Shown here is a 126-nucleotide RNA from Phyllostomus discolor, a member of the family "Small nucleolar RNA SNORA40". The family's consensus secondary structure was predicted with RNAalifold. It is annotated as an H/ACA-box small nucleolar RNA. For this family Rfam cites "Mapping to nucleotide resolution of pseudouridine residues in large subunit ribosomal RNAs from representative eukaryotes, prokaryotes, archaebacteria, mitochondria and chloroplasts" (Ofengand and Bakin, J Mol Biol, 1997). Gene Ontology terms of the family: nucleolus and RNA processing. Rfam describes the family as follows. The snoRNA ACA 40 belongs to the H/ACA family of snoRNAs and guides the pseudouridylation of 28S rRNA subunit at position U4565. NB This family has a high threshold value to exclude a large number of closely related sequences that do not appear to have conserved H and ACA boxes, and may be pseudogenes.
[Rfam]
RNA sequence: AGCACUUGUGUCUGUUUCUGUUUAAUCUGGGAGCAGAGACCACAUCCGGGUAUGAAAACGAAAUCCUUGUUUGCAGCCCAGAACCCAUCGUUUGGUAUGAUUUUUGAUACACGUAAGAAGAACGUG
Numbered sequence: 001a002g003c004a005c006u007u008g009u010g011u012c013u014g015u016u017u018c019u020g021u022u023u024a025a026u027c028u029g030g031g032a033g034c035a036g037a038g039a040c041c042a043c044a045u046c047c048g049g050g051u052a053u054g055a056a057a058a059c060g061a062a063a064u065c066c067u068u069g070u071u072u073g074c075a076g077c078c079c080a081g082a083a084c085c086c087a088u089c090g091u092u093u094g095g096u097a098u099g100a101u102u103u104u105u106g107a108u109a110c111a112c113g114u115a116a117g118a119a120g121a122a123c124g125u126g
Base pairs, nucleotide, nucleotide: 002053004051005050006049007048008047011044014040015039016038017037018036019035020034021033026031064122066120067119070117071116072115073114079106080105081104082103083102086099087098088097
The family has 28 seed sequences and 2,550 matches in Rfam 15.1. A search with the family's covariance model found it, with a score of 67 bits.